[Rfam]
RNA sequence: GAUAAGGCAGGCGAGAAACCUGCCCGCCGAAAGAUCAAGGUUUCCUCAGCUAUGCUAAUCAGCUGAGGGUUAGUCGGGUCCUAACGCGUAUCCGAAUUGGAGUAGUGGAUGGACAACAGGUUAAUAUUCCUGUACUUUCAUAACGAUAGAAGUGACGGAAUGAGGUAGACUCUGCGUACUGACGGAAUAGUACGUUAAAGGUGUUGUUAUGGCACUGAUAGUACACUAAGGCUUCGGCUGCGGUGAUAAUGAGUUGAUAACGUUUCCAAGAAAAGCGAGUUAUGAAACCCGUACCGUAAACCGACACAGGUGAUUGGGAUGAGAAUUCUAAGGCGCU
Numbered sequence: 001g002a003u004a005a006g007g008c009a010g011g012c013g014a015g016a017a018a019c020c021u022g023c024c025c026g027c028c029g030a031a032a033g034a035u036c037a038a039g040g041u042u043u044c045c046u047c048a049g050c051u052a053u054g055c056u057a058a059u060c061a062g063c064u065g066a067g068g069g070u071u072a073g074u075c076g077g078g079u080c081c082u083a084a085c086g087c088g089u090a091u092c093c094g095a096a097u098u099g100g101a102g103u104a105g106u107g108g109a110u111g112g113a114c115a116a117c118a119g120g121u122u123a124a125u126a127u128u129c130c131u132g133u134a135c136u137u138u139c140a141u142a143a144c145g146a147u148a149g150a151a152g153u154g155a156c157g158g159a160a161u162g163a164g165g166u167a168g169a170c171u172c173u174g175c176g177u178a179c180u181g182a183c184g185g186a187a188u189a190g191u192a193c194g195u196u197a198a199a200g201g202u203g204u205u206g207u208u209a210u211g212g213c214a215c216u217g218a219u220a221g222u223a224c225a226c227u228a229a230g231g232c233u234u235c236g237g238c239u240g241c242g243g244u245g246a247u248a249a250u251g252a253g254u255u256g257a258u259a260a261c262g263u264u265u266c267c268a269a270g271a272a273a274a275g276c277g278a279g280u281u282a283u284g285a286a287a288c289c290c291g292u293a294c295c296g297u298a299a300a301c302c303g304a305c306a307c308a309g310g311u312g313a314u315u316g317g318g319a320u321g322a323g324a325a326u327u328c329u330a331a332g333g334c335g336c337u
Stems, first nucleotide, its partner, number of pairs: 006024006025335004033315004039295002044068006053061002075291004080112002085107003091101003116133005136287009152276002157266004168255005174195006196228002201224003207218003230247001232245001234243003301310002317329003
Bacterial large subunit ribosomal RNA: a 337-nucleotide part of an RNA from Capnocytophaga canis. Rfam links the family to the GO terms structural constituent of ribosome and ribosome.